[Rfam]
Nucleotides: 342
Base pairs, nucleotide, nucleotide: 039052040051041050042049043048056194057193058192059191060190067187068186069185070184071183072182073181082173084171086170087169088168092108093107094106095105096104109155110154111153112152113151114150115149195210196209197208198207200222201221202220206217309323310322311321312320314340316338318336319335
Number, partner (000 for none) and nucleotide at each position: 001000c002000c003000a004000c005000u006000u007000c008000c009000a010000a011000u012000u013000a014000a015000g016000g017000u018000u019000g020000g021000a022000u023000c024000g025000c026000c027000u028000a029000u030000a031000u032000g033000u034000g035000g036000u037000g038000u039052g040051u041050c042049g043048g044000g045000c046000a047000a048043c049042c050041g051040a052039c053000u054000a055000u056194g057193g058192c059191g060190a061000u062000a063000a064000a065000c066000u067187g068186c069185u070184g071183c072182g073181u074000g075000c076000a077000a078000u079000a080000g081000g082173c083000a084171c085000a086170a087169c088168g089000g090000a091000c092108c093107c094106g095105g096104g097000g098000g099000c100000a101000g102000u103000a104096c105095c106094c107093g108092g109155c110154g111153g112152c113151u114150c115149c116000a117000c118000c119000a120000u121000a122000a123000c124000c125000c126000u127000c128000g129000g130000a131000c132000u133000u134000u135000g136000c137000g138000a139000g140000g141000u142000u143000u144000u145000u146000g147000a148000c149115g150114g151113g152112g153111c154110c155109g156000a157000a158000c159000c160000a161000g162000g163000a164000u165000c166000g167000a168088c169087g170086u171084g172000g173082g174000c175000u176000g177000a178000a179000a180000a181073g182072c183071g184070c185069a186068g187067u188000u189000u190060u191059u192058g193057c194056c195210c196209g197208g198207g199000c200222u201221g202220a203000g204000u205000a206217a207198c208197c209196c210195g211000u212000a213000a214000a215000a216000c217206u218000g219000u220202u221201c222200a223000u224000c225000u226000u227000u228000a229000u230000a231000a232000g233000u234000g235000c236000a237000a238000a239000c240000g241000a242000u243000a244000a245000c246000g247000a248000a249000g250000c251000a252000c253000u254000c255000g256000c257000a258000a259000u260000c261000g262000c263000u264000g265000c266000g267000u268000a269000a270000u271000g272000u273000g274000a275000c276000g277000g278000c279000c280000u281000a282000a283000c284000g285000g286000c287000c288000u289000g290000a291000a292000g293000u294000u295000a296000c297000a298000a299000a300000g301000c302000u303000u304000a305000u306000g307000c308000g309323c310322g311321g312320u313000u314340g315000g316338a317000c318336c319335c320312a321311c322310c323309g324000g325000g326000c327000a328000a329000c330000a331000g332000a333000a334000g335319g336318g337000a338316u339000a340314c341000c342000g